[Rfam]
RNA: mir-34 microRNA precursor family
Organism: Parambassis ranga
RNA sequence: GCUGUAUAGGCAGUGCUGUUAGCUGAUUGUUCUUAUACACCAAUCACUAACCACACUACCAGUACAAC
Numbered sequence: 001g002c003u004g005u006a007u008a009g010g011c012a013g014u015g016c017u018g019u020u021a022g023c024u025g026a027u028u029g030u031u032c033u034u035a036u037a038c039a040c041c042a043a044u045c046a047c048u049a050a051c052c053a054c055a056c057u058a059c060c061a062g063u064a065c066a067a068c
Stems, first nucleotide, its partner, number of pairs: 003066004009060002012057004018051005024046006031039001
Dot-bracket structure: ..((((..((.((((..(((((.((((((.(.......).)))))))))))..)))).))..))))..